[Rfam]
Nucleotides: 066
Base pairs, nucleotide, nucleotide: 002063003062006059007058009057010056011055012054013053014052015051016050017049018048019047020046021044022043023042024041025040030038032036
Number, partner (000 for none) and nucleotide at each position: 001000g002063g003062u004000c005000u006059g007058g008000c009057u010056g011055u012054u013053g014052u015051g016050g017049u018048g019047u020046g021044c022043a023042a024041a025040a026000u027000c028000c029000u030038g031000u032036g033000c034000a035000u036032u037000c038030c039000u040025u041024u042023u043022u044021g045000c046020c047019a048018c049017a050016c051015u052014g053013c054012a055011a056010c057009a058007c059006u060000u061000u062003a063002c064000a065000g066000a
The record is a 66-nucleotide sequence from Lepisosteus oculatus, which matches "mir-3064 microRNA precursor family" in Rfam. The family has 5 seed sequences and 516 matches in Rfam 15.1. It scores 79 bits against the family's covariance model. The source organism's lineage runs through Eukaryota, Metazoa, Deuterostomia, Actinopteri and Lepisosteus. Gene Ontology terms of the family: RISC complex and miRNA-mediated post-transcriptional gene silencing.